The record is a 433-nucleotide RNA from Kosakonia cowanii, which matches "cspA thermoregulator" in Rfam. NCBI's taxonomy places the organism under Bacteria, Pseudomonadota, Gammaproteobacteria, Enterobacteriaceae, Kosakonia cowanii. It is annotated as an RNA thermoregulator. A reference for the family is Giuliodori et al. (2010), "The cspA mRNA is a thermosensor that modulates translation of the cold-shock protein CspA", Mol Cell.
[Rfam]
RNA sequence: GUUUGAUAAAUCAUUAUCUCCAGCCAGUAGUCCACUAAAGUCUCUCUCAUCUCUAAGUACCUCGAUAGUUACUUCUUUUUGGGUCUCUUUACACGCUGAUAAAUAAUGCCUCAGACCAUUGCCGCCUAAAAAGGCCACUAAAACAAAAGGGUAACAAACAUGUCUAAUAAAAUGACUGGUAUCGUAAAAUGGUUCAACGCUGAGAAAGGCUUUGGCUUCAUCACUCCUAAAGAUGGCAGCAAAGAUGUAUUCGUACACUUCUCUGCAAUCCAGAGCGAUAACUACCGCACUCUUGAUGAAAAUCAGGAAGUUGAAUUCACCAUUGAAAAUGGUGCGAAAGGCCCAGCCGCUGCUAACGUAGUGCCGCGCUAAGGACGAUUUUAUUACGAACCAUAUCCAUUUCCGCUGCCCGUGCUGUCACGGGUCGCAAUAC
Numbered sequence: 001g002u003u004u005g006a007u008a009a010a011u012c013a014u015u016a017u018c019u020c021c022a023g024c025c026a027g028u029a030g031u032c033c034a035c036u037a038a039a040g041u042c043u044c045u046c047u048c049a050u051c052u053c054u055a056a057g058u059a060c061c062u063c064g065a066u067a068g069u070u071a072c073u074u075c076u077u078u079u080u081g082g083g084u085c086u087c088u089u090u091a092c093a094c095g096c097u098g099a100u101a102a103a104u105a106a107u108g109c110c111u112c113a114g115a116c117c118a119u120u121g122c123c124g125c126c127u128a129a130a131a132a133g134g135c136c137a138c139u140a141a142a143a144c145a146a147a148a149g150g151g152u153a154a155c156a157a158a159c160a161u162g163u164c165u166a167a168u169a170a171a172a173u174g175a176c177u178g179g180u181a182u183c184g185u186a187a188a189a190u191g192g193u194u195c196a197a198c199g200c201u202g203a204g205a206a207a208g209g210c211u212u213u214g215g216c217u218u219c220a221u222c223a224c225u226c227c228u229a230a231a232g233a234u235g236g237c238a239g240c241a242a243a244g245a246u247g248u249a250u251u252c253g254u255a256c257a258c259u260u261c262u263c264u265g266c267a268a269u270c271c272a273g274a275g276c277g278a279u280a281a282c283u284a285c286c287g288c289a290c291u292c293u294u295g296a297u298g299a300a301a302a303u304c305a306g307g308a309a310g311u312u313g314a315a316u317u318c319a320c321c322a323u324u325g326a327a328a329a330u331g332g333u334g335c336g337a338a339a340g341g342c343c344c345a346g347c348c349g350c351u352g353c354u355a356a357c358g359u360a361g362u363g364c365c366g367c368g369c370u371a372a373g374g375a376c377g378a379u380u381u382u383a384u385u386a387c388g389a390a391c392c393a394u395a396u397c398c399a400u401u402u403c404c405g406c407u408g409c410c411c412g413u414g415c416u417g418u419c420a421c422g423g424g425u426c427g428c429a430a431u432a433c
Base pairs, nucleotide, nucleotide: 005018006017007016008015009014026228027227029225030224031223040218045215046214047209048208050206058202059201060199062197064195065194067193069192070191074162076160078158079157085151086150087149088148089147093111095109096108124135125134126133164179165178166177168175232324233323234322235321236320244252245251257311258310259309260308262307263306264305265304269296270295272293273292274291277290330345331344332343334342335341346370348368349367351363352362353361354360373398374397375396377392379390380389405428406427408425409424410423411422412421413420414419